[Rfam]
Notes:
The record is a 53-nucleotide RNA sequence from Momordica charantia, which matches "Plastid-ccsA-ndhD-2 3UTR RNA" in Rfam. From the family's description: Plastid ccsA-ndhD-2 is a non-coding RNA (ncRNA) recognised in plastids. A search with the family's covariance model found it, with a score of 63 bits. On this family, see Richter et al., Plant Commun 2023: "Retrograde signaling in plants: A critical review focusing on the GUN pathway and beyond". By type it is a cis-regulatory element.
RNA sequence: UUCGUGAGAAUCAUUUGAAUCAAGUAAUGUAGUGAUUUAAAGGGUUCUCGAUA
Numbered sequence: 001u002u003c004g005u006g007a008g009a010a011u012c013a014u015u016u017g018a019a020u021c022a023a024g025u026a027a028u029g030u031a032g033u034g035a036u037u038u039a040a041a042g043g044g045u046u047c048u049c050g051a052u053a
Base pairs, nucleotide, nucleotide: 005050006049007048008047009046010045011044012043014041015040016039017038018037019036020035021034022033
Dot-bracket structure: ....((((((((.(((((((((..........))))))))).))))))))...